[Rfam]
RNA sequence: AGAAAUAACUAGGGGUGUCCAAUAAGUUGGGCUGAGAAAGAAACACGUUGAAGUUUCUUAACUCUUGGGACCUGAUCUGGAUCAUACCAGCGUGGGGAAGUUAGCAUCGUAUUAU
Numbered sequence: 001a002g003a004a005a006u007a008a009c010u011a012g013g014g015g016u017g018u019c020c021a022a023u024a025a026g027u028u029g030g031g032c033u034g035a036g037a038a039a040g041a042a043a044c045a046c047g048u049u050g051a052a053g054u055u056u057c058u059u060a061a062c063u064c065u066u067g068g069g070a071c072c073u074g075a076u077c078u079g080g081a082u083c084a085u086a087c088c089a090g091c092g093u094g095g096g097g098a099a100g101u102u103a104g105c106a107u108c109g110u111a112u113u114a115u
Stems, first nucleotide, its partner, number of pairs: 006103005011065004017032005039058005071096004077090004
The family of this 115-nucleotide sequence from Solibacillus silvestris is "TPP riboswitch aptamer (THI element)". The base pairs follow the family's consensus structure, which is taken from published work.